[Rfam]
RNA sequence: CAGUUAAAAAGCUCGUAGUUGGAUUUCUGUCGUGGUCAUCCGGUUCCGCCCGUAUGGGUGCGCACCUGGUUUGCCCUCGGCUUUCUUCCGGUAGCCUUCCGCGCUUAACUGCGUGCGUUGGUGUUCCGGAACUUUUACUUUGAGAAAAAUAGAGUGUUUCAAGCAGGCUUGUCGCCCUGAAUACUUCAGCAUGGAAUAAUAAGAUAGGACCUCGGUUCUAUUUUGUUGGUUUCUAGGACCAAGGUAAUGAUUAAUAGGGACAGUUGGGGGCAUUCGUAUUUAACUGUCAGAGGUGAAAUUCUUAGAUUUGUUAAAGACGAACUACUGCGAAAGCAUUUGCCAAGGAUGUUUUCAUUAAUCAAGAACGACAGUAGGGGGUUUGAAGACGAUUAGAUACCGUCGUAAUCUCUACCAUAAACUAUGCCGACUAGAGAUAGGGAAAUGCCUACCUUGGCUUCUCCUGCACCUCAUGAGAAAUCAAAGUCUCUGGGUUCUGGGGGGAGUAUGGUCGCAAGGCUGAAACUUAAAGGAAU
Numbered sequence: 001c002a003g004u005u006a007a008a009a010a011g012c013u014c015g016u017a018g019u020u021g022g023a024u025u026u027c028u029g030u031c032g033u034g035g036u037c038a039u040c041c042g043g044u045u046c047c048g049c050c051c052g053u054a055u056g057g058g059u060g061c062g063c064a065c066c067u068g069g070u071u072u073g074c075c076c077u078c079g080g081c082u083u084u085c086u087u088c089c090g091g092u093a094g095c096c097u098u099c100c101g102c103g104c105u106u107a108a109c110u111g112c113g114u115g116c117g118u119u120g121g122u123g124u125u126c127c128g129g130a131a132c133u134u135u136u137a138c139u140u141u142g143a144g145a146a147a148a149a150u151a152g153a154g155u156g157u158u159u160c161a162a163g164c165a166g167g168c169u170u171g172u173c174g175c176c177c178u179g180a181a182u183a184c185u186u187c188a189g190c191a192u193g194g195a196a197u198a199a200u201a202a203g204a205u206a207g208g209a210c211c212u213c214g215g216u217u218c219u220a221u222u223u224u225g226u227u228g229g230u231u232u233c234u235a236g237g238a239c240c241a242a243g244g245u246a247a248u249g250a251u252u253a254a255u256a257g258g259g260a261c262a263g264u265u266g267g268g269g270g271c272a273u274u275c276g277u278a279u280u281u282a283a284c285u286g287u288c289a290g291a292g293g294u295g296a297a298a299u300u301c302u303u304a305g306a307u308u309u310g311u312u313a314a315a316g317a318c319g320a321a322c323u324a325c326u327g328c329g330a331a332a333g334c335a336u337u338u339g340c341c342a343a344g345g346a347u348g349u350u351u352u353c354a355u356u357a358a359u360c361a362a363g364a365a366c367g368a369c370a371g372u373a374g375g376g377g378g379u380u381u382g383a384a385g386a387c388g389a390u391u392a393g394a395u396a397c398c399g400u401c402g403u404a405a406u407c408u409c410u411a412c413c414a415u416a417a418a419c420u421a422u423g424c425c426g427a428c429u430a431g432a433g434a435u436a437g438g439g440a441a442a443u444g445c446c447u448a449c450c451u452u453g454g455c456u457u458c459u460c461c462u463g464c465a466c467c468u469c470a471u472g473a474g475a476a477a478u479c480a481a482a483g484u485c486u487c488u489g490g491g492u493u494c495u496g497g498g499g500g501g502a503g504u505a506u507g508g509u510c511g512c513a514a515g516g517c518u519g520a521a522a523c524u525u526a527a528a529g530g531a532a533u
Stems, first nucleotide, its partner, number of pairs: 001496003009493001011366001013364002018359003257353004261348002264345002269341004275319002279315006286308001290301003327334002371412006381405001385401004423492003426485003430468002435463005441457002444455003472479002498525003507518004
This 533-nucleotide part of an RNA from Rhabdornis inornatus belongs to the Rfam family "Eukaryotic small subunit ribosomal RNA". Clan: SSU clan. The family has 90 seed sequences and 75,755 matches in Rfam 15.1.